This 57-nucleotide sequence from Neisseria animalis belongs to the Rfam family "porB RNA". The base pairs follow the family's consensus structure, which is taken from published work.
Nucleotides: 057
Stems, first nucleotide, its partner, number of pairs: 023041007
Number, partner (000 for none) and nucleotide at each position: 001000c002000a003000a004000u005000u006000a007000u008000a009000g010000u011000u012000a013000u014000c015000c016000g017000c018000a019000u020000g021000g022000a023041a024040c025039c026038g027037c028036u029035g030000c031000a032000u033000a034000u035029c036028a037027g038026c039025g040024g041023u042000a043000a044000a045000c046000a047000c048000u049000a050000a051000a052000g053000c054000c055000g056000g057000a
The match comes from Rfam's covariance-model search (40 bits).